[Rfam]
RNA sequence: CUUACAGAGUUUAUUGGCAUUCUGUCCACCUCCCAUCAAUGGAAAAAUUAAUCCUUUGUUAAUUUUUGGUCUCUCACCGGAGGUGGGCAUACUGUCAACUGAGCUCUGUUGG
Numbered sequence: 001c002u003u004a005c006a007g008a009g010u011u012u013a014u015u016g017g018c019a020u021u022c023u024g025u026c027c028a029c030c031u032c033c034c035a036u037c038a039a040u041g042g043a044a045a046a047a048u049u050a051a052u053c054c055u056u057u058g059u060u061a062a063u064u065u066u067u068g069g070u071c072u073c074u075c076a077c078c079g080g081a082g083g084u085g086g087g088c089a090u091a092c093u094g095u096c097a098a099c100u101g102a103g104c105u106c107u108g109u110u111g112g
Stems, first nucleotide, its partner, number of pairs: 011102001014098006023089011